This 111-nucleotide RNA from Ectothiorhodospiraceae bacterium AqS1 belongs to the Rfam family "Alpha operon ribosome binding site". For this family Rfam cites "Translational repression of the Escherichia coli alpha operon mRNA: importance of an mRNA conformational switch and a ternary entrapment complex" (Schlax et al., J Biol Chem, 2001). It is annotated as a cis-regulatory element.
RNA sequence: UAAGCAAAGGCAAGGCUGAAAGCCCUUCGGGCUCUUCGAGAACCGCCUUUUCCUAAGAUAAGAGGAGAACUGACACUCAUGGCUCGUAUCGCCGGUAUCAAUAUUCCGGAU
Numbered sequence: 001u002a003a004g005c006a007a008a009g010g011c012a013a014g015g016c017u018g019a020a021a022g023c024c025c026u027u028c029g030g031g032c033u034c035u036u037c038g039a040g041a042a043c044c045g046c047c048u049u050u051u052c053c054u055a056a057g058a059u060a061a062g063a064g065g066a067g068a069a070c071u072g073a074c075a076c077u078c079a080u081g082g083c084u085c086g087u088a089u090c091g092c093c094g095g096u097a098u099c100a101a102u103a104u105u106c107c108g109g110a111u
Base pairs, nucleotide, nucleotide: 004052006050007049008048009047010046011045024095025094028086029085030084031083036110037109

Rfam links the family to the GO term ribosome binding. The match comes from Rfam's covariance-model search (43 bits). From the family's description: The bacterial alpha operon ribosome binding site is surrounded by this complex pseudoknotted structure.